RNA sequence: AUUCCUCGGUGGCGACGUUUUCGUCACCACCUCCCUGUAGGACUUGCCCCCGGCCCUUGCGCCGGGGCUUUUUU
Numbered sequence: 001a002u003u004c005c006u007c008g009g010u011g012g013c014g015a016c017g018u019u020u021u022c023g024u025c026a027c028c029a030c031c032u033c034c035c036u037g038u039a040g041g042a043c044u045u046g047c048c049c050c051c052g053g054c055c056c057u058u059g060c061g062c063c064g065g066g067g068c069u070u071u072u073u074u
Base pairs, nucleotide, nucleotide: 008028009027010026011025012024013023014022046068047067048066050065051064052063053062054061
Rfam assigns this 74-nucleotide sequence from Salibaculum griseiflavum to the family "Singlet oxygen resistance RNA X". Pairs were carried over by alignment from the consensus structure. On this family, see Berghoff et al., Mol Microbiol 2009: "Photooxidative stress-induced and abundant small RNAs in Rhodobacter sphaeroides". Rfam describes the family as follows. SorX (RSs2461)like SorY is a singlet oxygen induced sRNA that counteracts oxidative stress by targeting mRNA for a transporter in Rhodobacter. It also has an impact on resistance against organic hydroperoxides. The family's RNA type in Rfam is small RNA.